RNA sequence: ACGGUGUUCCGCUGCAACAGCAAUGGAGGCAAGAGCAUCUG
Numbered sequence: 001a002c003g004g005u006g007u008u009c010c011g012c013u014g015c016a017a018c019a020g021c022a023a024u025g026g027a028g029g030c031a032a033g034a035g036c037a038u039c040u041g
Base pairs, nucleotide, nucleotide: 003039004038005037006036007035008034009033013031014030015028018025
Description
The record is a 41-nucleotide RNA sequence from Jeotgalibacillus campisalis, which matches "Ribosomal protein L19 leader" in Rfam. By type it is a cis-regulatory leader. The family's consensus secondary structure was predicted with CMfinder. Taxonomically the source falls in Jeotgalibacillus (Bacteria, Bacillati, Bacillota, Bacilli). A reference for the family is Zengel and Lindahl (1994), "Diverse mechanisms for regulating ribosomal protein synthesis in Escherichia coli", Prog Nucleic Acid Res Mol Biol.